[Rfam]
RNA sequence: CACUGGAGGGGGGUUCCCUCAGCUCAGAUUGCGAGAGGGCACAGGCCAGGCCGAGGGACCUCACCGGUGUGUG
Dot-bracket structure: ..(.(..((.(((.((((((.(((..(.(((.(......).))).)..))).)))))).))).))..)..)..
RNA: mir-9193 microRNA precursor family
Organism: Myotis davidii